Shown here is a 102-nucleotide RNA sequence from Planococcus sp. PAMC 21323, a member of the family "Purine riboswitch aptamer". Rfam links the family to the GO term purine nucleobase biosynthetic process.

RNA sequence: AUUAUAAAUUACAGUUGCCCUCAUAUAUGUCCGGUAAUAUGGAUCGGAUGUCUCUACCAAGUCCCCGGAAAUGACUUGACUAUGAAGGUGGAUGACGCACGC
Numbered sequence: 001a002u003u004a005u006a007a008a009u010u011a012c013a014g015u016u017g018c019c020c021u022c023a024u025a026u027a028u029g030u031c032c033g034g035u036a037a038u039a040u041g042g043a044u045c046g047g048a049u050g051u052c053u054c055u056a057c058c059a060a061g062u063c064c065c066c067g068g069a070a071a072u073g074a075c076u077u078g079a080c081u082a083u084g085a086a087g088g089u090g091g092a093u094g095a096c097g098c099a100c101g102c
Base pairs, nucleotide, nucleotide: 018088019087021085022084023083024082025081029049030048031047032046033045034044035043058078059077060076061075062074063073